Rfam assigns this 78-nucleotide RNA from Ailuropoda melanoleuca to the family "Small nucleolar RNA U2-19". A reference for the family is Tycowski et al. (2004), "Guide RNAs with 5' Caps and Novel Box C/D snoRNA-like Domains for Modification of snRNAs in Metazoa", Curr Biol. Gene Ontology terms of the family: nucleolus and RNA processing. A search with the family's covariance model found it, with a score of 74 bits.
[Rfam]
RNA sequence: GAUCAAUAUGAAAAUAGAUAAAUCUGAGCAUCAAAGACCUUCCAGCCUAUCUGAUACAUGAUCUCUGUAGCUCUGAGA
Numbered sequence: 001g002a003u004c005a006a007u008a009u010g011a012a013a014a015u016a017g018a019u020a021a022a023u024c025u026g027a028g029c030a031u032c033a034a035a036g037a038c039c040u041u042c043c044a045g046c047c048u049a050u051c052u053g054a055u056a057c058a059u060g061a062u063c064u065c066u067g068u069a070g071c072u073c074u075g076a077g078a
Base pairs, nucleotide, nucleotide: 028057030055031054032053035048036047038045